[Rfam]
The record is a 103-nucleotide RNA sequence from Hibiscus syriacus, which matches "Small nucleolar RNA Z107/R87" in Rfam.
Rfam links the family to the GO terms RNA processing and nucleolus.
RNA sequence: GAUCGCAGUGAUGACCUCAUAAAAUUCAAGCUCAACAGACCGGAAUGCAGCCUUCUCUUUUUGAGAAUUUUGCGUGUCGAUAACCCCGCUGAACUGAGUGAUC
Dot-bracket structure: ((((((...........................................................................................))))))